[Rfam]
RNA sequence: ACGCUACCGCCAUGUUGCGCUGACUCCGGUCAGCAACAUGCCCAGGUAGCCACGGUCUUCAAGGCUACGACGCGGUUCCGUCCGCGUGAUCACACCAGUUCGCACUCGGCAUCCCAGCGCGAACGACCGUCGAGCAAUCGACGGUGAUGC
Numbered sequence: 001a002c003g004c005u006a007c008c009g010c011c012a013u014g015u016u017g018c019g020c021u022g023a024c025u026c027c028g029g030u031c032a033g034c035a036a037c038a039u040g041c042c043c044a045g046g047u048a049g050c051c052a053c054g055g056u057c058u059u060c061a062a063g064g065c066u067a068c069g070a071c072g073c074g075g076u077u078c079c080g081u082c083c084g085c086g087u088g089a090u091c092a093c094a095c096c097a098g099u100u101c102g103c104a105c106u107c108g109g110c111a112u113c114c115c116a117g118c119g120c121g122a123a124c125g126a127c128c129g130u131c132g133a134g135c136a137a138u139c140g141a142c143g144g145u146g147a148u149g150c
Stems, first nucleotide, its partner, number of pairs: 011040004016035001019034006046068006054091004070087006119150003126145008